[Rfam]
RNA: JUMPstart RNA
RNA sequence: CAGCAUAUUGAUUGCUGAAAGCCAAGGGCGGUAGCGUG
Numbered sequence: 001c002a003g004c005a006u007a008u009u010g011a012u013u014g015c016u017g018a019a020a021g022c023c024a025a026g027g028g029c030g031g032u033a034g035c036g037u038g
Stems, first nucleotide, its partner, number of pairs: 008025003012021001
Dot-bracket structure: .......(((.(........).))).............